[Rfam]
RNA sequence: AACAUGAUAGGCGAAGGUGUUCGCCAUAACCGUUAUUCAACUAAUGACACCUAGUUUCGG
Dot-bracket structure: .........[[[[..((((((]]]]......(((....)))....)))))).........
Rfam assigns this 60-nucleotide sequence from Lacticaseibacillus camelliae to the family "Fluoride riboswitch aptamer (crcB RNA motif)". The base pairs follow the family's consensus structure, which is taken from published work. NCBI's taxonomy places the organism under Bacteria, Bacillati, Bacillota, Lactobacillales, Lacticaseibacillus camelliae. A search with the family's covariance model found it, with a score of 36 bits.